[Rfam]
RNA: Giant, ornate, lake- and Lactobacillales-derived (GOLLD) RNA
Organism: Reyvirus rey
RNA sequence: CUGAGGUGUGAAGCAUUCUGUGCCCCAAAAGGGUUCGGAACUUCAUGGGGAAGCACAUCUCACGUCAAACAUUUAGCUCAGCAGUAGAGCAUCUCUUUGGAAUAGAGACGGCGGCGGUGCGAUUCCGCCAAUGUAACCAAGCAAAAGUUCUUCCCCUGCCGAGAAGCAAAAGCGCCUUAAUCCCCGACUGUGGAGCAGAAUCGGGGCCGUCACGAGCCCGCAAGGCGACGGCGGUUUGUAGGCAAGUAGUGCAGCCAUGGGACGGCCAUCCUAACGGCGAAGCGAAAGUCGCAGAGUAGCUUUCGGUAUGACGAGUGGUUCACGUACGAACCAGGCGUUGCACGUACUCGGGGGACCGAGUGGACAAGUCGGGAAUCCAUAAUCCGACGAAAGCGUGUGGUCGUGGCGGUUUAGUCUCUAGCCC
Dot-bracket structure: .((((((((((((...((((.((((.....)))).)))).))))..[[[[[[[.))))))))..............................................................................{{.......]]]]]]]((((((.((((.....[[[[[....(((((((((.....)))..))))))(((((....(((.}}..)))...)))))..(((.(........(((.(((.......)))...(.....)))).........).))).....))))))))))........(((((......)))))]]]]].(((((((((((((....)))))))[[[..((((((.........)))))).....))))))........(((...]]]....))).